RNA: Exoribonuclease-resistant RNA (xrRNA) plant-infecting virus (class 3)
RNA sequence: AGGCUAGCCGGGCAAUGUGUUGCAAGCGCCGGAAGCUCAGGCACAUGG
Numbered sequence: 001a002g003g004c005u006a007g008c009c010g011g012g013c014a015a016u017g018u019g020u021u022g023c024a025a026g027c028g029c030c031g032g033a034a035g036c037u038c039a040g041g042c043a044c045a046u047g048g
Stems, first nucleotide, its partner, number of pairs: 001037002008032002011030001012027002015046005